[Rfam]
RNA sequence: CUGCCAGGAUGAGACCCCUGAACUCUCUCUUUCUGAUGGCCAAGUGGUGAAAGGCUCUAUGGGAAUCUGAGUGGC
Dot-bracket structure: ((((..................................................................)))).
A member of the RNA family "Small nucleolar RNA SNORD26" from Nothoprocta perdicaria, 75 nucleotides long. On this family, see Tycowski et al., Nature 1996: "A mammalian gene with introns instead of exons generating stable RNA products". Its Rfam clan is "SNORD26 clan". Taxonomically the source falls in Nothoprocta (Eukaryota, Vertebrata, Gnathostomata, Theropoda). The match comes from Rfam's covariance-model search (55 bits). The family's RNA type in Rfam is C/D-box small nucleolar RNA.